[Rfam]
Nucleotides: 275
Stems, first nucleotide, its partner, number of pairs: 006030002012025003036046002082127003086124002093117002100110001137151001139150004159202003162198002209251007219237005260275001262273003
Number, partner (000 for none) and nucleotide at each position: 001000u002000g003000a004000c005000g006030c007029c008000c009000a010000a011000c012025g013024u014023g015000g016000g017000g018000c019000u020000g021000g022000a023014u024013a025012c026000u027000g028000a029007g030006g031000c032000a033000a034000c035000a036046g037045u038000g039000a040000g041000g042000g043000a044000g045037a046036c047000g048000a049000c050000g051000u052000g053000a054000g055000a056000a057000g058000g059000a060000a061000c062000a063000c064000g065000u066000u067000c068000g069000a070000a071000c072000a073000a074000a075000c076000c077000u078000u079000g080000a081000g082127a083126c084125u085000c086124u087123u088000c089000g090000g091000g092000a093117c094116c095000a096000c097000c098000c099000u100110g101000a102000g103000a104000a105000c106000c107000u108000g109000c110100c111000u112000u113000c114000g115000u116094g117093g118000a119000a120000c121000c122000a123087a124086a125084a126083g127082u128000a129000a130000g131000u132000g133000g134000g135000a136000a137151c138000g139150u140149c141148c142147g143000a144000u145000c146000a147142u148141g149140g150139g151137g152000c153000a154000g155000c156000a157000a158000u159202u160201a161200a162198g163197c164000c165000a166000g167000c168000a169000u170000g171000a172000g173000c174000u175000u176000u177000a178000u179000g180000u181000u182000a183000a184000a185000c186000a187000g188000u189000u190000a191000a192000a193000g194000g195000c196000a197163g198162c199000u200161u201160u202159a203000a204000a205000g206000a207000c208000a209251c210250g211249g212248g213247g214246g215245g216000u217000a218000a219237a220236g221235g222234u223233u224000a225000a226000g227000g228000c229000u230000a231000u232000g233223g234222a235221u236220u237219u238000g239000u240000u241000u242000c243000a244000u245215u246214u247213c248212u249211u250210u251209g252000a253000u254000u255000a256000u257000u258000u259000a260275a261000a262273g263272g264271a265000a266000a267000u268000u269000u270000g271264u272263c273262c274000c275260u